A member of the RNA family "MIR2630 microRNA precursor family" from Medicago truncatula, 232 nucleotides long. The organism belongs to Medicago, within Eukaryota. A search with the family's covariance model found it, with a score of 203 bits.
RNA sequence: UCUUGUAAAUAUUGGAUAUUUGGUUUUGGUCCUUGGUAUUUUGUUUUAAUCCUGGUAAAAUCAUUUCAUAUUGAAAUUGGUCCAUAUAAUAUUCAUUUUAGUCUUCAUUUUGAGGGACUAAAAUCAAAUAUUCUAAAUAUUACAAGGACCAAAUCAAUAUGAAUAAAUUUUACAAGGACUAAAACAAAAUACCAAGGACCAAAACUAAAUUUUAAAAAAAUAUUUUUACAAU
Number, nucleotide and partner (000 for none) at each position: 001u000002c000003u000004u000005g000006u000007a225008a224009a223010u222011a221012u220013u219014g000015g213016a212017u000018a210019u209020u208021u000022g206023g205024u204025u203026u202027u201028g200029g199030u198031c197032c196033u195034u194035g000036g192037u191038a190039u189040u188041u187042u186043g185044u184045u183046u182047u181048a180049a000050u178051c177052c000053u175054g000055g173056u172057a171058a170059a169060a168061u167062c000063a000064u000065u163066u162067c000068a160069u159070a158071u157072u156073g155074a000075a000076a000077u152078u151079g150080g149081u148082c147083c146084a000085u000086a000087u142088a141089a140090u139091a138092u137093u000094c000095a000096u000097u000098u000099u000100a000101g000102u000103c000104u000105u000106c000107a124108u123109u122110u121111u120112g000113a000114g000115g000116g000117a000118c000119u000120a111121a110122a109123a108124u107125c000126a000127a000128a000129u000130a000131u000132u000133c000134u000135a000136a000137a092138u091139a090140u089141u088142a087143c000144a000145a000146g083147g082148a081149c080150c079151a078152a077153a000154u000155c073156a072157a071158u070159a069160u068161g000162a066163a065164u000165a000166a000167a061168u060169u059170u058171u057172a056173c055174a000175a053176g000177g051178a050179c000180u048181a047182a046183a045184a044185c043186a042187a041188a040189a039190u038191a037192c036193c000194a034195a033196g032197g031198a030199c029200c028201a027202a026203a025204a024205c023206u022207a000208a020209a019210u018211u000212u016213u015214a000215a000216a000217a000218a000219a013220a012221u011222a010223u009224u008225u007226u000227u000228a000229c000230a000231a000232u000